The family of this 398-nucleotide sequence from Sphingomonas jinjuensis is "Bacterial RNase P class A". The organism belongs to Sphingomonas, within Bacteria. Pairs were carried over by alignment from the consensus structure, which is taken from published work. The family's RNA type in Rfam is ribozyme. Rfam links the family to the GO terms dimeric ribonuclease P complex, ribonuclease P activity and tRNA processing.

RNA sequence: CCAGAGGGCCGGGCGGCCGCGUCAUCCAGCGAUGGAUGCCGAGGAAAGUCCGGGCUCCACGAAACGACGGUGGCGGGUAACGCCCGCCGGCCACGCGCCUUCGGACGCGGGGUUAGGGAAAGUGCCACAGAGAGCAGACGGCCUGGCUUCGGCCCGGUCACGGUGAAAGGGUGCGGCAAGAGCGCACCGCGCGCGCCGGUAACGGCCGCGGCAUGGCAAACCCCACCGGGAGCAAGACCGAAUAGGGGCGGCAAGGAGCCUUUGGCUCCGGGGCGUGUUUCCGCCUGUCGCCCGGGUUGGUCGCUAGAGACGGCGUGCGAGCGUCGUCCGAGAGGAAUGGUCGCCCAUCCGGCAGCGAUGCCGGUGGACAGAACCCGGCUUACAGGCCCUCUGGCAAA
Numbered sequence: 001c002c003a004g005a006g007g008g009c010c011g012g013g014c015g016g017c018c019g020c021g022u023c024a025u026c027c028a029g030c031g032a033u034g035g036a037u038g039c040c041g042a043g044g045a046a047a048g049u050c051c052g053g054g055c056u057c058c059a060c061g062a063a064a065c066g067a068c069g070g071u072g073g074c075g076g077g078u079a080a081c082g083c084c085c086g087c088c089g090g091c092c093a094c095g096c097g098c099c100u101u102c103g104g105a106c107g108c109g110g111g112g113u114u115a116g117g118g119a120a121a122g123u124g125c126c127a128c129a130g131a132g133a134g135c136a137g138a139c140g141g142c143c144u145g146g147c148u149u150c151g152g153c154c155c156g157g158u159c160a161c162g163g164u165g166a167a168a169g170g171g172u173g174c175g176g177c178a179a180g181a182g183c184g185c186a187c188c189g190c191g192c193g194c195g196c197c198g199g200u201a202a203c204g205g206c207c208g209c210g211g212c213a214u215g216g217c218a219a220a221c222c223c224c225a226c227c228g229g230g231a232g233c234a235a236g237a238c239c240g241a242a243u244a245g246g247g248g249c250g251g252c253a254a255g256g257a258g259c260c261u262u263u264g265g266c267u268c269c270g271g272g273g274c275g276u277g278u279u280u281c282c283g284c285c286u287g288u289c290g291c292c293c294g295g296g297u298u299g300g301u302c303g304c305u306a307g308a309g310a311c312g313g314c315g316u317g318c319g320a321g322c323g324u325c326g327u328c329c330g331a332g333a334g335g336a337a338u339g340g341u342c343g344c345c346c347a348u349c350c351g352g353c354a355g356c357g358a359u360g361c362c363g364g365u366g367g368a369c370a371g372a373a374c375c376c377g378g379c380u381u382a383c384a385g386g387c388c389c390u391c392u393g394g395c396a397a398a
Base pairs, nucleotide, nucleotide: 001394002393003392004391005390006389007388008387009386010385011383012345013344014343015342016341017340018339020041021040023038024037025036026035027034028033046381047380048379050378051377052376053375054374055232056231057230058229063280064279068228069227070226071225072224073087074086075085076084077083088116089114090113091112092111117223118222122221123220124217125216126215139162140161141158142157143156145154146153147152170188171187172186173185174184175183189212190210191209192208193207195206196205197204198203236302237301238300239299246293247292248291249290250289251288271286272285273284274283275282309328310327311326312325313324314323315322316321